[Rfam]
RNA sequence: CGGGGUCGAAUGGAGUAGCGAAAGUGAAACGGACCCACGCGAAAGGAGAGACGCUUCCCGAGGCGAAAGCCCAAAACUGUACCUCUGAUGCCCGGCGGACGGACGCUGCUUGCAUGGCGGGUGAUGUGCCUUACCCCGUUUCAUGUGCGCCGGCAAAGCAAAUUAGACGGCACCCAACAAGACAUUUGUACGGAGGGCGAACAAAACCUUUAUGACCA
Numbered sequence: 001c002g003g004g005g006u007c008g009a010a011u012g013g014a015g016u017a018g019c020g021a022a023a024g025u026g027a028a029a030c031g032g033a034c035c036c037a038c039g040c041g042a043a044a045g046g047a048g049a050g051a052c053g054c055u056u057c058c059c060g061a062g063g064c065g066a067a068a069g070c071c072c073a074a075a076a077c078u079g080u081a082c083c084u085c086u087g088a089u090g091c092c093c094g095g096c097g098g099a100c101g102g103a104c105g106c107u108g109c110u111u112g113c114a115u116g117g118c119g120g121g122u123g124a125u126g127u128g129c130c131u132u133a134c135c136c137c138g139u140u141u142c143a144u145g146u147g148c149g150c151c152g153g154c155a156a157a158g159c160a161a162a163u164u165a166g167a168c169g170g171c172a173c174c175c176a177a178c179a180a181g182a183c184a185u186u187u188g189u190a191c192g193g194a195g196g197g198c199g200a201a202c203a204a205a206a207c208c209u210u211u212a213u214g215a216c217c218a
Stems, first nucleotide, its partner, number of pairs: 004035004019024001062071003079198002082196006089190001090154003094150001096149002099146002105113002116140006158189005164184001166175001
About this RNA:
Rfam assigns this 218-nucleotide sequence to the family "RT-2 RNA".